[Rfam]
RNA sequence: AUCAAGAGUAGAAGCGUUCAGCACGGUGCUCUGGCCCUUGUCGGUCAGCAGCUUCGCGGGUCAUUGCUCUUGAA
Numbered sequence: 001a002u003c004a005a006g007a008g009u010a011g012a013a014g015c016g017u018u019c020a021g022c023a024c025g026g027u028g029c030u031c032u033g034g035c036c037c038u039u040g041u042c043g044g045u046c047a048g049c050a051g052c053u054u055c056g057c058g059g060g061u062c063a064u065u066g067c068u069c070u071u072g073a074a
Stems, first nucleotide, its partner, number of pairs: 005070006015059001019060001021057002025053003

The family of this 74-nucleotide sequence from Comamonas testosteroni is "Xanthine riboswitch aptamer (NMT1 RNA)". On this family, see Yu and Breaker, RNA 2020: "A bacterial riboswitch class senses xanthine and uric acid to regulate genes associated with purine oxidation". The source organism's lineage runs through Bacteria, Pseudomonadota, Betaproteobacteria, Comamonadaceae and Comamonas testosteroni. Its family is annotated with purine nucleobase binding in the Gene Ontology.